[Rfam]
RNA sequence: AUGAUGGUUUAGGGAGAGAUUGCGGGUACAUUUUUUUGUAUUACGCAACGCCGAAGGAGUAAGCAGCAAUGUGAAUCUCUCAGGCAAAAGGACCUUUGCUGGACG
Numbered sequence: 001a002u003g004a005u006g007g008u009u010u011a012g013g014g015a016g017a018g019a020u021u022g023c024g025g026g027u028a029c030a031u032u033u034u035u036u037u038g039u040a041u042u043a044c045g046c047a048a049c050g051c052c053g054a055a056g057g058a059g060u061a062a063g064c065a066g067c068a069a070u071g072u073g074a075a076u077c078u079c080u081c082a083g084g085c086a087a088a089a090g091g092a093c094c095u096u097u098g099c100u101g102g103a104c105g
Stems, first nucleotide, its partner, number of pairs: 006100003011095003020048004050085003053081002057079003063072002
RNA: Glycine riboswitch aptamer